[Rfam]
RNA: msiK RNA
Organism: Haloechinothrix halophila
RNA sequence: CACCAUCACCUUUACUACGGAUCGUCCGGCACGUACCUGCCGGUGAAGGGAACCUGU
Numbered sequence: 001c002a003c004c005a006u007c008a009c010c011u012u013u014a015c016u017a018c019g020g021a022u023c024g025u026c027c028g029g030c031a032c033g034u035a036c037c038u039g040c041c042g043g044u045g046a047a048g049g050g051a052a053c054c055u056g057u
Stems, first nucleotide, its partner, number of pairs: 009049006026043006